[Rfam]
RNA sequence: GCCAGGGUGAGUCAGGCUGGUGCCUGGACGUGGCUUCAGUCCACGAGGUCUGGGGACAGACAGGAGUUCGAUUCUCCCUCUCUGGC
Numbered sequence: 001g002c003c004a005g006g007g008u009g010a011g012u013c014a015g016g017c018u019g020g021u022g023c024c025u026g027g028a029c030g031u032g033g034c035u036u037c038a039g040u041c042c043a044c045g046a047g048g049u050c051u052g053g054g055g056a057c058a059g060a061c062a063g064g065a066g067u068u069c070g071a072u073u074c075u076c077c078c079u080c081u082c083u084g085g086c
Stems, first nucleotide, its partner, number of pairs: 001086007009078001012027006029045005048061005063077004

Annotation: The family of this 86-nucleotide sequence from Effrenium voratum is "Selenocysteine transfer RNA". The organism belongs to Effrenium, within Eukaryota. The base pairs follow the family's consensus structure, which is taken from published work. It scores 64 bits against the family's covariance model.